[Rfam]
A member of the RNA family "Fluoride riboswitch aptamer (crcB RNA motif)" from Enterococcus casseliflavus, 73 nucleotides long.
RNA sequence: AUGCUAAUAGGGAAUGAAUGUCUCCCUCAGUUCUUACUGAAACCGCAAUUUUGCUAAUGACUUCUACCACUUU
Numbered sequence: 001a002u003g004c005u006a007a008u009a010g011g012g013a014a015u016g017a018a019u020g021u022c023u024c025c026c027u028c029a030g031u032u033c034u035u036a037c038u039g040a041a042a043c044c045g046c047a048a049u050u051u052u053g054c055u056a057a058u059g060a061c062u063u064c065u066a067c068c069a070c071u072u073u
Base pairs, nucleotide, nucleotide: 010026011025012024013023016064017063018062020061021060022059045054046053047052